[Rfam]
RNA sequence: ACUGGCAAUGAUGACACGCUUGCCCUUAUUGAGAACUUUGUUCGGUAAUGAGAACCCAGAGCUGAGCCAGA
Numbered sequence: 001a002c003u004g005g006c007a008a009u010g011a012u013g014a015c016a017c018g019c020u021u022g023c024c025c026u027u028a029u030u031g032a033g034a035a036c037u038u039u040g041u042u043c044g045g046u047a048a049u050g051a052g053a054a055c056c057c058a059g060a061g062c063u064g065a066g067c068c069a070g071a
Stems, first nucleotide, its partner, number of pairs: 002070005